[Rfam]
RNA sequence: UCCAGCUCCAGGGCCUUGUACAUGGCAGGCUUUCAUUCAUUCGUUCGCACGUUCGGUGAAGGUCUGCCGUGUGCCAGGCCCUGUGCCGG
Numbered sequence: 001u002c003c004a005g006c007u008c009c010a011g012g013g014c015c016u017u018g019u020a021c022a023u024g025g026c027a028g029g030c031u032u033u034c035a036u037u038c039a040u041u042c043g044u045u046c047g048c049a050c051g052u053u054c055g056g057u058g059a060a061g062g063u064c065u066g067c068c069g070u071g072u073g074c075c076a077g078g079c080c081c082u083g084u085g086c087c088g089g
Stems, first nucleotide, its partner, number of pairs: 009083008018074020
RNA: mir-493 microRNA precursor family
Organism: Galemys pyrenaicus